RNA sequence: UUUAACGCAGAGGGAGAGACUGGCUUAGCCAGCGCCGAAGGAGCAACCGCCCCGGAAACUCUCAGGCAGAAGGACCCUGCGUUUUA
Numbered sequence: 001u002u003u004a005a006c007g008c009a010g011a012g013g014g015a016g017a018g019a020c021u022g023g024c025u026u027a028g029c030c031a032g033c034g035c036c037g038a039a040g041g042a043g044c045a046a047c048c049g050c051c052c053c054g055g056a057a058a059c060u061c062u063c064a065g066g067c068a069g070a071a072g073g074a075c076c077c078u079g080c081g082u083u084u085u086a
Base pairs, nucleotide, nucleotide: 006081007080008079009078010077012076013075020032021031022030023029034067035066036065037063038062041061042060043059047055048054

Shown here is an 86-nucleotide RNA from Acetobacter pomorum, a member of the family "Glycine riboswitch aptamer". Taxonomically the source falls in Acetobacter pomorum (Bacteria, Pseudomonadota, Acetobacteraceae, Acetobacter). The base pairs follow the family's consensus structure.